Rfam assigns this 46-nucleotide sequence from Kolteria novifilia to the family "Acido-Lenti-1 RNA".
[Rfam]
RNA sequence: CCUGCGGCUCACGCCGCAGGCUACGUGCUGCCGUCGCUUCGCGACU
Numbered sequence: 001c002c003u004g005c006g007g008c009u010c011a012c013g014c015c016g017c018a019g020g021c022u023a024c025g026u027g028c029u030g031c032c033g034u035c036g037c038u039u040c041g042c043g044a045c046u
Base pairs, nucleotide, nucleotide: 001020002019003018004017005016006015007014008013033045034044035043036042037041
The family's RNA type in Rfam is small RNA. NCBI's taxonomy places the organism under Bacteria, Pseudomonadati, Kolteriales, Kolteriaceae, Kolteria.